The family of this 532-nucleotide part of an RNA from Haloquadratum sp. J07HQX50 is "Archaeal large subunit ribosomal RNA". The family is grouped with related families in Rfam's "LSU clan". It scores 2729 bits against the family's covariance model. Gene Ontology terms of the family: ribosome and structural constituent of ribosome.
[Rfam]
RNA sequence: GCUACUGUACUGGCUGGUGAAUGGCUCGGCUCGAGUGCCGAUGACGGACGUGCCAAGCUGCGAUAAGCCUGAGCAAGCUGCAUGGAGGCGAAGAACUCAGGAUCUCCGAAUGGGAAUCCCCACCGCAAUUGCUUCGCGCAAUGGGGAACGCCCCGAAUUGAAACAUCUUAGUAGGGGCAGGAACAGAAAGCAACCGCGAUGUCGUUACUAACCGCGAGUGAACGCGACCCAGUCCAAACCGAAGCCCUCACGGGCAAUGUGGUGUUCGGAGUUGCCAUCAUGGAUUUAACGUCGACCAGAAAUCUCCUGGAACGGAGUACGACACAGGGUGACAGUCCCGUAUGACCGACCGACAAUCUUGGGCGACAUCCAGAGUAGCGGGGGUUGGAUCUCCCUCGUGAACAUCGCAGGCAUCCCCUGUGAAGACUACAUACUCCUCGAGACCGAUAGCGAACAAGUAGCGUGAGCGAACGCUGAAAAGCACCCCGAACAGGGCGGUGCAAUAGGGCCUGAACUCAGUCAGUGAUAGAAC
Numbered sequence: 001g002c003u004a005c006u007g008u009a010c011u012g013g014c015u016g017g018u019g020a021a022u023g024g025c026u027c028g029g030c031u032c033g034a035g036u037g038c039c040g041a042u043g044a045c046g047g048a049c050g051u052g053c054c055a056a057g058c059u060g061c062g063a064u065a066a067g068c069c070u071g072a073g074c075a076a077g078c079u080g081c082a083u084g085g086a087g088g089c090g091a092a093g094a095a096c097u098c099a100g101g102a103u104c105u106c107c108g109a110a111u112g113g114g115a116a117u118c119c120c121c122a123c124c125g126c127a128a129u130u131g132c133u134u135c136g137c138g139c140a141a142u143g144g145g146g147a148a149c150g151c152c153c154c155g156a157a158u159u160g161a162a163a164c165a166u167c168u169u170a171g172u173a174g175g176g177g178c179a180g181g182a183a184c185a186g187a188a189a190g191c192a193a194c195c196g197c198g199a200u201g202u203c204g205u206u207a208c209u210a211a212c213c214g215c216g217a218g219u220g221a222a223c224g225c226g227a228c229c230c231a232g233u234c235c236a237a238a239c240c241g242a243a244g245c246c247c248u249c250a251c252g253g254g255c256a257a258u259g260u261g262g263u264g265u266u267c268g269g270a271g272u273u274g275c276c277a278u279c280a281u282g283g284a285u286u287u288a289a290c291g292u293c294g295a296c297c298a299g300a301a302a303u304c305u306c307c308u309g310g311a312a313c314g315g316a317g318u319a320c321g322a323c324a325c326a327g328g329g330u331g332a333c334a335g336u337c338c339c340g341u342a343u344g345a346c347c348g349a350c351c352g353a354c355a356a357u358c359u360u361g362g363g364c365g366a367c368a369u370c371c372a373g374a375g376u377a378g379c380g381g382g383g384g385u386u387g388g389a390u391c392u393c394c395c396u397c398g399u400g401a402a403c404a405u406c407g408c409a410g411g412c413a414u415c416c417c418c419u420g421u422g423a424a425g426a427c428u429a430c431a432u433a434c435u436c437c438u439c440g441a442g443a444c445c446g447a448u449a450g451c452g453a454a455c456a457a458g459u460a461g462c463g464u465g466a467g468c469g470a471a472c473g474c475u476g477a478a479a480a481g482c483a484c485c486c487c488g489a490a491c492a493g494g495g496c497g498g499u500g501c502a503a504u505a506g507g508g509c510c511u512g513a514a515c516u517c518a519g520u521c522a523g524u525g526a527u528a529g530a531a532c
Base pairs, nucleotide, nucleotide: 008525009524010523011522012521013520014519015518016517017516023510024474025473028445029444030442031441032440033439034438035437037434045108046107047106048105049062050061051060068101069100070099071098072097073096077089078088079087112121113120114119128142129141130140131139132138149180150178151177152176153175154174160167161166190197191196201228202227203226204225205224211219212218231428232427233426234425239262240261241260244255245254246253247252272366273365274364275363282358283357285355297344298343302318304317305316306315307314321325327339328338329337378399379398380397381396382395383394384393406422407421408420409419410418461468462467